Rfam assigns this 86-nucleotide sequence from Pelosinus fermentans to the family "c-di-GMP-I riboswitch aptamer". The source organism's lineage runs through Bacteria, Bacillota, Sporomusaceae, Pelosinus and Pelosinus fermentans. GEMM was predicted in a large-scale screen for bacterial structured RNA regulatory elements. The family's consensus secondary structure is taken from published work.

RNA sequence: UACCAUAAUGAGCAAACCAACCUAAAGGUGGGGACGCAAAGCCAUGGGUCUAAGGAUGUUACAUCUAUGAUUGCCAGGUUGCAUCG
Numbered sequence: 001u002a003c004c005a006u007a008a009u010g011a012g013c014a015a016a017c018c019a020a021c022c023u024a025a026a027g028g029u030g031g032g033g034a035c036g037c038a039a040a041g042c043c044a045u046g047g048g049u050c051u052a053a054g055g056a057u058g059u060u061a062c063a064u065c066u067a068u069g070a071u072u073g074c075c076a077g078g079u080u081g082c083a084u085c086g
Stems, first nucleotide, its partner, number of pairs: 012037002017032002020029003040080004045076003048071003055065004